[Rfam]
Early nodulin 40: a 245-nucleotide RNA sequence from Setaria italica. Lineage of the source: Eukaryota > Viridiplantae > Spermatophyta > Cenchrinae > Setaria. Its family is annotated with nodulation in the Gene Ontology. A search with the family's covariance model found it, with a score of 89 bits. Pairs were carried over by alignment from the consensus structure, which is taken from published work. On this family, see Gultyaev and Roussis, Nucleic Acids Res 2007: "Identification of conserved secondary structures and expansion segments in enod40 RNAs reveals new enod40 homologues in plants".

RNA sequence: AUGGAGGGCGCAUGGCAGGAGCGUCUGCAUGGUUCUUGAGAGCUGCGUAAGCAGUACAGCAGCACAAGGAUGGAGGACAAUGGCUGCGCUCAGCUGAGCUCCUCCUCCUCAUCAAUGAUCAGUUUGUAUUUGUCCAUACCUCUCAUGGCCUUCUUCCCUGGCUUCCAGUUCCAGAUGGCUUGGUGAGGCUUGGACAGAAACCGGCAAGUCAGAAAUCGGCAAUGGUGAGCUCCUACAGGAGCCUA
Dot-bracket structure: ...................................................................(((...................................))).............((((((...........(((............................................))).....))..))))...........................((((......))))...